RNA sequence: GAAGAUCACCACAAUAGUAAUUUAAUUUAGUACAAGAAAAACUGUUGAUUCAGAUAAUUGAUUUUUGCAGCUGUCUGACCAGACAGUGCCACAAAGCUACCAUCUGCCAGAUUAUGGCUGAAUGUCUCUAAGUCAGAAUCCAUACUAGAACACAGCAAUAUUGCUCUGUAUAUUAUAGUUGGAUAUAAAUAAGUCUACAGACCCUGAAUCUCAGCAGAUCAGCAACAGCUUCUGGAAAGAGACUCUCAGGUGCCAGCUGACAGAUUGCAAUGUCACCACACACAGAGAUAGAUUCUCUGCAGACAACUGAAAUAAUCAAGCAGAUUAUGUAAGCAGUCAAGUAACUUAGUUAUUACAAGUCACUAAACAUCAGCUCAAUUCUUGGCUUGAUUUGU
Numbered sequence: 001g002a003a004g005a006u007c008a009c010c011a012c013a014a015u016a017g018u019a020a021u022u023u024a025a026u027u028u029a030g031u032a033c034a035a036g037a038a039a040a041a042c043u044g045u046u047g048a049u050u051c052a053g054a055u056a057a058u059u060g061a062u063u064u065u066u067g068c069a070g071c072u073g074u075c076u077g078a079c080c081a082g083a084c085a086g087u088g089c090c091a092c093a094a095a096g097c098u099a100c101c102a103u104c105u106g107c108c109a110g111a112u113u114a115u116g117g118c119u120g121a122a123u124g125u126c127u128c129u130a131a132g133u134c135a136g137a138a139u140c141c142a143u144a145c146u147a148g149a150a151c152a153c154a155g156c157a158a159u160a161u162u163g164c165u166c167u168g169u170a171u172a173u174u175a176u177a178g179u180u181g182g183a184u185a186u187a188a189a190u191a192a193g194u195c196u197a198c199a200g201a202c203c204c205u206g207a208a209u210c211u212c213a214g215c216a217g218a219u220c221a222g223c224a225a226c227a228g229c230u231u232c233u234g235g236a237a238a239g240a241g242a243c244u245c246u247c248a249g250g251u252g253c254c255a256g257c258u259g260a261c262a263g264a265u266u267g268c269a270a271u272g273u274c275a276c277c278a279c280a281c282a283c284a285g286a287g288a289u290a291g292a293u294u295c296u297c298u299g300c301a302g303a304c305a306a307c308u309g310a311a312a313u314a315a316u317c318a319a320g321c322a323g324a325u326u327a328u329g330u331a332a333g334c335a336g337u338c339a340a341g342u343a344a345c346u347u348a349g350u351u352a353u354u355a356c357a358a359g360u361c362a363c364u365a366a367a368c369a370u371c372a373g374c375u376c377a378a379u380u381c382u383u384g385g386c387u388u389g390a391u392u393u394g395u
Base pairs, nucleotide, nucleotide: 005159006158009155015147016146017145018144020050022048023047024046025045026044051106052105053104054103055102059099060098066093067092070089071086072085073084074083075082076081110140115135116134117133118132119131165286166285167284168283169282171280290393291392292391293390294389296310297309299307316385317384318383319382320381323376324375326369333363336360338359341356342355343354344353
RNA: Eukaryotic large subunit ribosomal RNA, nucleotides 2969 to 3363
Organism: Coccidioides posadasii